A member of the RNA family "mir-33 microRNA precursor family" from Salvator merianae, 69 nucleotides long. The family's consensus secondary structure was predicted with PFOLD. Rfam links the family to the GO terms RISC complex and gene silencing by miRNA. The source organism's lineage runs through Eukaryota, Eumetazoa, Vertebrata, Dipnotetrapodomorpha and Salvator. It scores 73 bits against the family's covariance model.

RNA sequence: CUGUUGUGCAUUGUAGUUGCAUUGCAUGUCCCUACAGUACUCAUGCAAUGUUUCCGCAGUGCAGUACAG
Number, nucleotide and partner (000 for none) at each position: 001c069002u068003g067004u066005u000006g065007u063008g062009c061010a060011u059012u058013g057014u056015a000016g054017u000018u000019g051020c000021a049022u048023u047024g046025c045026a044027u043028g000029u000030c000031c000032c000033u000034a000035c000036a000037g000038u000039a000040c000041u000042c000043a027044u026045g025046c024047a023048a022049u021050g000051u019052u000053u000054c016055c000056g014057c013058a012059g011060u010061g009062c008063a007064g000065u006066a004067c003068a002069g001